[Rfam]
RNA sequence: UGGCUGGCUCCAUCGUGCUUAGGUUUGAGUGUCUUCGUUUGUUUUCUCUAAUGGCAUUCAACCUUGGAGCGAUAGAGACGGCCA
Numbered sequence: 001u002g003g004c005u006g007g008c009u010c011c012a013u014c015g016u017g018c019u020u021a022g023g024u025u026u027g028a029g030u031g032u033c034u035u036c037g038u039u040u041g042u043u044u045u046c047u048c049u050a051a052u053g054g055c056a057u058u059c060a061a062c063c064u065u066g067g068a069g070c071g072a073u074a075g076a077g078a079c080g081g082c083c084a
Stems, first nucleotide, its partner, number of pairs: 003082004008077003012073005018067002021064005027059006
Shown here is an 84-nucleotide sequence from Drosophila willistoni, a member of the family "mir-955 microRNA precursor family".
Taxonomically the source falls in Sophophora (Eukaryota, Dicondylia, Diptera, Ephydroidea).
Gene Ontology terms of the family: miRNA-mediated post-transcriptional gene silencing and RISC complex.
A search with the family's covariance model found it, with a score of 57 bits.
The family has 2 seed sequences and 13 matches in Rfam 15.1.